[Rfam]
RNA sequence: GAGUCUAACAUGCCUGCAAGUGUUUGGGUGGAAAACCCGAGCGCGUAACGAAAGUGAAAGUUGAGACCUCUGUCGUGGAGGGCAUCGACGCCCGGACCUGAUCUUCGGUGACGGAUCUGCGGUGGAGCAUGUAUGUUGGGACCCGAAAGAUGGUGAACUAUGCCUGAAUAGGGUGAAGCCAGAGGAAACUCUGGUGGAAGCUCGUAGCGAUUCUGACGUGCAAAUCGAUCGUCGAAUUUGGGUAUAGGGGCGAAAGACUAAUCGAACCAUCUAGUAGCUGGUU
Numbered sequence: 001g002a003g004u005c006u007a008a009c010a011u012g013c014c015u016g017c018a019a020g021u022g023u024u025u026g027g028g029u030g031g032a033a034a035a036c037c038c039g040a041g042c043g044c045g046u047a048a049c050g051a052a053a054g055u056g057a058a059a060g061u062u063g064a065g066a067c068c069u070c071u072g073u074c075g076u077g078g079a080g081g082g083c084a085u086c087g088a089c090g091c092c093c094g095g096a097c098c099u100g101a102u103c104u105u106c107g108g109u110g111a112c113g114g115a116u117c118u119g120c121g122g123u124g125g126a127g128c129a130u131g132u133a134u135g136u137u138g139g140g141a142c143c144c145g146a147a148a149g150a151u152g153g154u155g156a157a158c159u160a161u162g163c164c165u166g167a168a169u170a171g172g173g174u175g176a177a178g179c180c181a182g183a184g185g186a187a188a189c190u191c192u193g194g195u196g197g198a199a200g201c202u203c204g205u206a207g208c209g210a211u212u213c214u215g216a217c218g219u220g221c222a223a224a225u226c227g228a229u230c231g232u233c234g235a236a237u238u239u240g241g242g243u244a245u246a247g248g249g250g251c252g253a254a255a256g257a258c259u260a261a262u263c264g265a266a267c268c269a270u271c272u273a274g275u276a277g278c279u280g281g282u283u
Stems, first nucleotide, its partner, number of pairs: 005139009015129003020044003025039005048055002060089005067081003091122002093119003097114002103108001142281002145278001149271006158247011169235001171203004178195007207232004212228002215226002249259002

Shown here is a 283-nucleotide part of an RNA from Jaapia argillacea, a member of the family "Eukaryotic large subunit ribosomal RNA". The source organism's lineage runs through Eukaryota, Fungi, Agaricomycotina, Agaricomycetidae and Jaapia argillacea.